[Rfam]
RNA sequence: GUCGUUUCGCAUUGACCCGUCAACAUAAGGAGUUUUCUUUAGAAACUCAUUCACAACCAAAUGCGGGUGGGAAAUUCGGUGGUACGCUCCAUCCUUUACAGAUUUGCUCCUGAGAGCUUCUUCCUUAGCGUGAAAGCGCAUGGGCGGCGUUACAAGAAAUAUACACGGAGUUUUAAGGCUGUAGAAGGUCUGCUUCGUAUGGGAAUGGCGCCGUGGAUGGUUGGCUGUGAGUAAUUCUUUACUACAAGCUGUUUAGUGCAAUAUGCGAACUUGAAGUCACCUUCAAGCACCCGAUACCGAUCACCGAC
Numbered sequence: 001g002u003c004g005u006u007u008c009g010c011a012u013u014g015a016c017c018c019g020u021c022a023a024c025a026u027a028a029g030g031a032g033u034u035u036u037c038u039u040u041a042g043a044a045a046c047u048c049a050u051u052c053a054c055a056a057c058c059a060a061a062u063g064c065g066g067g068u069g070g071g072a073a074a075u076u077c078g079g080u081g082g083u084a085c086g087c088u089c090c091a092u093c094c095u096u097u098a099c100a101g102a103u104u105u106g107c108u109c110c111u112g113a114g115a116g117c118u119u120c121u122u123c124c125u126u127a128g129c130g131u132g133a134a135a136g137c138g139c140a141u142g143g144g145c146g147g148c149g150u151u152a153c154a155a156g157a158a159a160u161a162u163a164c165a166c167g168g169a170g171u172u173u174u175a176a177g178g179c180u181g182u183a184g185a186a187g188g189u190c191u192g193c194u195u196c197g198u199a200u201g202g203g204a205a206u207g208g209c210g211c212c213g214u215g216g217a218u219g220g221u222u223g224g225c226u227g228u229g230a231g232u233a234a235u236u237c238u239u240u241a242c243u244a245c246a247a248g249c250u251g252u253u254u255a256g257u258g259c260a261a262u263a264u265g266c267g268a269a270c271u272u273g274a275a276g277u278c279a280c281c282u283u284c285a286a287g288c289a290c291c292c293g294a295u296a297c298c299g300a301u302c303a304c305c306g307a308c
Stems, first nucleotide, its partner, number of pairs: 001308004006269007015068005030048006077299005091218004106117004121134003145213007165198007270287007
A member of the RNA family "Nuclear RNase P" from Candida albicans, 308 nucleotides long. The family has 116 seed sequences and 3,848 matches in Rfam 15.1. It scores 83 bits against the family's covariance model. From the family's description: Ribonuclease P (RNase P) is a ubiquitous endoribonuclease, found in archaea, bacteria and eukarya as well as chloroplasts and mitochondria.